[Rfam]
Nucleotides: 086
Base pairs, nucleotide, nucleotide: 011079012078013077014076015075016074017073018072020070022068023067024066025065026064027063028062029061030060031059036054038052041049042048
Number, partner (000 for none) and nucleotide at each position: 001000u002000u003000a004000a005000c006000u007000u008000a009000c010000u011079a012078a013077u014076u015075u016074g017073u018072a019000u020070g021000g022068a023067g024066u025065u026064g027063g028062a029061g030060c031059g032000u033000u034000u035000g036054c037000c038052u039000a040000c041049g042048u043000u044000u045000g046000c047000c048042a049041c050000u051000a052038g053000a054036g055000g056000c057000g058000c059031u060030g061029u062028u063027c064026c065025a066024a067023c068022u069000g070020c071000a072018u073017a074016c075015a076014a077013a078012u079011u080000u081000g082000g083000g084000u085000u086000a